RNA: mir-133 microRNA precursor family
Organism: Bemisia tabaci
RNA sequence: AAGCUUUAGCUGGUUGAACCUGGGUCAAAUUGUAACUUCGGUGAAAGUCAUUUGGUCCCCUUCAACCAGCUGUAGUUG
Numbered sequence: 001a002a003g004c005u006u007u008a009g010c011u012g013g014u015u016g017a018a019c020c021u022g023g024g025u026c027a028a029a030u031u032g033u034a035a036c037u038u039c040g041g042u043g044a045a046a047g048u049c050a051u052u053u054g055g056u057c058c059c060c061u062u063c064a065a066c067c068a069g070c071u072g073u074a075g076u077u078g
Base pairs, nucleotide, nucleotide: 003076004075005074008071009070010069011068012067013066014065015064016063017062018061022058023057024056025055026054027053028052029051030050